[Rfam]
RNA sequence: UGCAUGCUCCCUUAGAUCCACACAUCCGGGUGUGUCAGUGGUGUUGUUCAUAGGUCUUGCUCUGGUCUGUGUACUCACCCAUCACCCAAACAACCUGACCGGCUGUUCAUGGAGUGUGCUUGAGUCAUUGGCAUGCUACAUUAUUGCUACCUCUUUGUUGUAGACUGAUUAUGCUUCCUGUAUCUGGAGACUGGCUCUUGGUCUUCUUACAGAUACAGGGGCUGUCUGCACACAGGGACAUG
Number, nucleotide and partner (000 for none) at each position: 001u000002g136003c135004a134005u133006g132007c131008u130009c000010c000011c124012u123013u122014a121015g120016a000017u000018c000019c118020a117021c116022a115023c114024a000025u112026c111027c000028g087029g086030g085031u084032g083033u000034g000035u000036c000037a000038g000039u081040g080041g079042u000043g078044u000045u000046g074047u073048u000049c071050a000051u000052a068053g000054g067055u000056c065057u064058u000059g000060c000061u000062c000063u000064g057065g056066u000067c054068u052069g000070u000071g049072u000073a047074c046075u000076c000077a000078c043079c041080c040081a039082u000083c032084a031085c030086c029087c028088a000089a000090a106091c105092a104093a000094c102095c101096u000097g000098a000099c000100c000101g095102g094103c000104u092105g091106u090107u000108c000109a000110u000111g026112g025113a000114g023115u022116g021117u020118g019119c000120u015121u014122g013123a012124g011125u000126c000127a000128u000129u000130g008131g007132c006133a005134u004135g003136c002137u000138a000139c000140a000141u000142u000143a000144u000145u000146g000147c000148u000149a000150c000151c000152u000153c237154u236155u235156u234157g233158u000159u000160g229161u000162a227163g226164a225165c224166u000167g000168a000169u000170u000171a000172u000173g000174c000175u000176u000177c219178c218179u217180g216181u215182a214183u213184c212185u211186g210187g000188a207189g000190a202191c201192u200193g000194g000195c000196u000197c000198u000199u000200g192201g191202u190203c000204u000205u000206c000207u188208u000209a000210c186211a185212g184213a183214u182215a181216c180217a179218g178219g177220g000221g000222c000223u000224g165225u164226c163227u162228g000229c160230a000231c000232a000233c157234a156235g155236g154237g153238a000239c000240a000241u000242g000
A member of the RNA family "Small nucleolar RNA SNORA53" from Candidula unifasciata, 242 nucleotides long. Taxonomically the source falls in Candidula (Eukaryota, Mollusca, Helicina, Geomitridae). The match comes from Rfam's covariance-model search (60 bits). The family's RNA type in Rfam is H/ACA-box small nucleolar RNA. The family's consensus secondary structure was predicted with RNAalifold. About the family: The snoRNA ACA53 belongs to the H/ACA family of pseudouridylation guide snoRNAs.